[Rfam]
This 198-nucleotide RNA from Cohnella lupini belongs to the Rfam family "FMN riboswitch aptamer (RFN element)". NCBI's taxonomy places the organism under Bacteria, Bacillati, Bacillota, Bacilli, Cohnella. It scores 94 bits against the family's covariance model.
RNA sequence: UGCUACCUUCGGGGCGGGGCGUAAUUCCCCACCGACGGUGAUCGGCAGCAUGGCGACCGCAGGGAGAUCUGCUGGAAGCUUGCAGCCGUCAGUCCGUGACCCGUCAUCGUUUCUUCCGGAAUUACCGGCGAGAGCGAUGCGGUGGACCUGGUGCAAAUCCGGGACCGACAGUUAUAGUCUGGAUGGGAGAAGGAAGCG
Numbered sequence: 001u002g003c004u005a006c007c008u009u010c011g012g013g014g015c016g017g018g019g020c021g022u023a024a025u026u027c028c029c030c031a032c033c034g035a036c037g038g039u040g041a042u043c044g045g046c047a048g049c050a051u052g053g054c055g056a057c058c059g060c061a062g063g064g065a066g067a068u069c070u071g072c073u074g075g076a077a078g079c080u081u082g083c084a085g086c087c088g089u090c091a092g093u094c095c096g097u098g099a100c101c102c103g104u105c106a107u108c109g110u111u112u113c114u115u116c117c118g119g120a121a122u123u124a125c126c127g128g129c130g131a132g133a134g135c136g137a138u139g140c141g142g143u144g145g146a147c148c149u150g151g152u153g154c155a156a157a158u159c160c161g162g163g164a165c166c167g168a169c170a171g172u173u174a175u176a177g178u179c180u181g182g183a184u185g186g187g188a189g190a191a192g193g194a195a196g197c198g
Base pairs, nucleotide, nucleotide: 003196004195006193007192008191009190010189017029018028019027031178032177033167034166035097036096037095038094101142102141103140104139147163148162149161150160151159169181170180171179